[Rfam]
RNA sequence: AGUGCCCUCAGGUAUUGCAGUGUUUGUGUAUCGUCGUCACCGCAGGUUCAAGAGGCACAAGA
Numbered sequence: 001a002g003u004g005c006c007c008u009c010a011g012g013u014a015u016u017g018c019a020g021u022g023u024u025u026g027u028g029u030a031u032c033g034u035c036g037u038c039a040c041c042g043c044a045g046g047u048u049c050a051a052g053a054g055g056c057a058c059a060a061g062a
Stems, first nucleotide, its partner, number of pairs: 002058005015045004020040003027033001
Description:
Shown here is a 62-nucleotide RNA sequence from Trypanosoma congolense, a member of the family "Trypanosomatid snoRNA TB9Cs3H2". A reference for the family is Liang et al. (2005), "A genome-wide analysis of C/D and H/ACA-like small nucleolar RNAs in Trypanosoma brucei reveals a trypanosome-specific pattern of rRNA modification", RNA. Its family is annotated with RNA processing and nucleolus in the Gene Ontology. The family's consensus secondary structure was predicted with WAR. By type it is an H/ACA-box small nucleolar RNA.